Source information
Shown here is a 297-nucleotide RNA from Neogobius melanostomus, a member of the family "Metazoan signal recognition particle RNA". Rfam classes the family as a non-coding RNA gene. The signal recognition particle (SRP) is a universally conserved ribonucleoprotein. Its family is annotated with SRP-dependent cotranslational protein targeting to membrane, signal sequence recognition and signal recognition particle, endoplasmic reticulum targeting in the Gene Ontology. The family's consensus secondary structure is taken from published work.

RNA sequence: GCCGGGUGCGGUGGCGCGCGCCUGUAAUCCCAGUCCCGGGAGGCUGAGGCUGAGGGACUGUUUGAGCUGAGGAGCUCUGAGCUGCAGUGACUGUGUCGAUCUGGUGUCCGCACUAAGUUCGGUAUCGAUAUGGUGCUCCUGGGGGAGCCCGGGACCACCAGGUCGCCUAAGGAGGGGUGCACCGGCCCAGGCCGGACACGGAGCAGGCCAAAGCCCCCGUGCCGCUCAGUAGUGGGAUCGCGCCGGAGAGCAGACCCUGCAGUGCAGCCUGAGCGACACAACAGGACCCAGACUUUU
Numbered sequence: 001g002c003c004g005g006g007u008g009c010g011g012u013g014g015c016g017c018g019c020g021c022c023u024g025u026a027a028u029c030c031c032a033g034u035c036c037c038g039g040g041a042g043g044c045u046g047a048g049g050c051u052g053a054g055g056g057a058c059u060g061u062u063u064g065a066g067c068u069g070a071g072g073a074g075c076u077c078u079g080a081g082c083u084g085c086a087g088u089g090a091c092u093g094u095g096u097c098g099a100u101c102u103g104g105u106g107u108c109c110g111c112a113c114u115a116a117g118u119u120c121g122g123u124a125u126c127g128a129u130a131u132g133g134u135g136c137u138c139c140u141g142g143g144g145g146a147g148c149c150c151g152g153g154a155c156c157a158c159c160a161g162g163u164c165g166c167c168u169a170a171g172g173a174g175g176g177g178u179g180c181a182c183c184g185g186c187c188c189a190g191g192c193c194g195g196a197c198a199c200g201g202a203g204c205a206g207g208c209c210a211a212a213g214c215c216c217c218c219g220u221g222c223c224g225c226u227c228a229g230u231a232g233u234g235g236g237a238u239c240g241c242g243c244c245g246g247a248g249a250g251c252a253g254a255c256c257c258u259g260c261a262g263u264g265c266a267g268c269c270u271g272a273g274c275g276a277c278a279c280a281a282c283a284g285g286a287c288c289c290a291g292a293c294u295u296u297u
Stems, first nucleotide, its partner, number of pairs: 001044003004023007028041003046295003050291003054287001058284005066274003070270003077267003081263007089255001091253004096248001100247008108236002111234005117227001120224006126165004131160005137154007166172002174217005184209004192201003